[Rfam]
RNA sequence: AAGUGGGGACGGCCUCACCUCUUUAUAAAUAACCGGGGACGGCCCCG
Numbered sequence: 001a002a003g004u005g006g007g008g009a010c011g012g013c014c015u016c017a018c019c020u021c022u023u024u025a026u027a028a029a030u031a032a033c034c035g036g037g038g039a040c041g042g043c044c045c046c047g
Stems, first nucleotide, its partner, number of pairs: 001020001003018006034047005
This 47-nucleotide RNA from Desulfuromonas soudanensis belongs to the Rfam family "Guanidine-II riboswitch aptamer (mini-ykkC)". Taxonomically the source falls in Desulfuromonas (Bacteria, Thermodesulfobacteriota, Desulfuromonadales, Desulfuromonadaceae). The family's consensus secondary structure is taken from published work. Rfam's curators write: Simpler in structure and has fewer highly conserved nucleotide positions than the ykkC-yxkD leader. Rfam links the family to the GO term regulation of gene expression. It scores 43 bits against the family's covariance model.